Notes
Rfam assigns this 380-nucleotide RNA sequence from Cladophialophora yegresii to the family "Nuclear RNase P".
RNA sequence: UCCGCUGCGUUCUCUGCUACAAACAACGAGGUGCUCCUGUUGUCUCAACAGUUGAGCCCUUGUUCUGCUCUUGCAGAUGAGAAAUUCGGAGUAAUCUUCAAAAGUCCACCUCUGCCCCGGAUCAUUCUCGAUCUAAGGCACAUGGUACCGCCCGCGAGGGCCCGGCACGAUUUCGUGCUCGCGACCGGCAUCAGAAAUUUACAGGGCCUCAAGGCCAACACUCUCGUAGUGUUCGUGUCUUGGGGGAUUCCCUAUGGAAGAGCCGUCGCGAAGAUUGUUUGGGCGCGAAAGCGUACCUCACUUUAGUGCAAUCGCAGCGGAAAUCUAGCAUUCCAUUAUCUUGGAUGGCUCGGUUUCAAUUCGAUUCCGAUUACUCUGGG
Numbered sequence: 001u002c003c004g005c006u007g008c009g010u011u012c013u014c015u016g017c018u019a020c021a022a023a024c025a026a027c028g029a030g031g032u033g034c035u036c037c038u039g040u041u042g043u044c045u046c047a048a049c050a051g052u053u054g055a056g057c058c059c060u061u062g063u064u065c066u067g068c069u070c071u072u073g074c075a076g077a078u079g080a081g082a083a084a085u086u087c088g089g090a091g092u093a094a095u096c097u098u099c100a101a102a103a104g105u106c107c108a109c110c111u112c113u114g115c116c117c118c119g120g121a122u123c124a125u126u127c128u129c130g131a132u133c134u135a136a137g138g139c140a141c142a143u144g145g146u147a148c149c150g151c152c153c154g155c156g157a158g159g160g161c162c163c164g165g166c167a168c169g170a171u172u173u174c175g176u177g178c179u180c181g182c183g184a185c186c187g188g189c190a191u192c193a194g195a196a197a198u199u200u201a202c203a204g205g206g207c208c209u210c211a212a213g214g215c216c217a218a219c220a221c222u223c224u225c226g227u228a229g230u231g232u233u234c235g236u237g238u239c240u241u242g243g244g245g246g247a248u249u250c251c252c253u254a255u256g257g258a259a260g261a262g263c264c265g266u267c268g269c270g271a272a273g274a275u276u277g278u279u280u281g282g283g284c285g286c287g288a289a290a291g292c293g294u295a296c297c298u299c300a301c302u303u304u305a306g307u308g309c310a311a312u313c314g315c316a317g318c319g320g321a322a323a324u325c326u327a328g329c330a331u332u333c334c335a336u337u338a339u340c341u342u343g344g345a346u347g348g349c350u351c352g353g354u355u356u357c358a359a360u361u362c363g364a365u366u367c368c369g370a371u372u373a374c375u376c377u378g379g380g
Base pairs, nucleotide, nucleotide: 001319003317006314007313013077014076015075016074026063027062028061029060030059031058087369088368089367090366091365096273097272098271099270150161151160152159153158164179165178166177167176168175181269182268183267184266187264188263189262203253204252205251320357321356322355323354324353325352
The source organism's lineage runs through Eukaryota, Opisthokonta, Fungi, Herpotrichiellaceae and Cladophialophora yegresii. The match comes from Rfam's covariance-model search (48 bits).